The record is a 46-nucleotide RNA from Methanococcus aeolicus, which matches "eL15-Euryarchaeota ribosomal protein leader" in Rfam. Taxonomically the source falls in Methanococcus aeolicus (Archaea, Methanobacteriati, Methanococci, Methanococcaceae).
[Rfam]
RNA sequence: CGGGAGUCAAAUCCCGUCGGGCAUGUGGCAAGAGCUGAACCCAUAA
Numbered sequence: 001c002g003g004g005a006g007u008c009a010a011a012u013c014c015c016g017u018c019g020g021g022c023a024u025g026u027g028g029c030a031a032g033a034g035c036u037g038a039a040c041c042c043a044u045a046a
Stems, first nucleotide, its partner, number of pairs: 001016005019042003027036003